c-di-GMP-I riboswitch aptamer: a 99-nucleotide RNA sequence from Nitratifractor salsuginis. The source organism's lineage runs through Bacteria, Pseudomonadati, Epsilonproteobacteria, Sulfurovaceae and Nitratifractor salsuginis. Its Rfam clan is "c-di-GMP_I riboswitch clan".

[Rfam]
RNA sequence: ACUAGAAAAUGCCACCCCUGUUGCGAGGCAGGUUCGGAAAGCCAUGGGUCUUUGAUACUGUCACUUGGCAGUAAAUGAGAAGAUCGCCAGGUUGCCUAA
Numbered sequence: 001a002c003u004a005g006a007a008a009a010u011g012c013c014a015c016c017c018c019u020g021u022u023g024c025g026a027g028g029c030a031g032g033u034u035c036g037g038a039a040a041g042c043c044a045u046g047g048g049u050c051u052u053u054g055a056u057a058c059u060g061u062c063a064c065u066u067g068g069c070a071g072u073a074a075a076u077g078a079g080a081a082g083a084u085c086g087c088c089a090g091g092u093u094g095c096c097u098a099a
Stems, first nucleotide, its partner, number of pairs: 012037002017032006040093004045089003048084006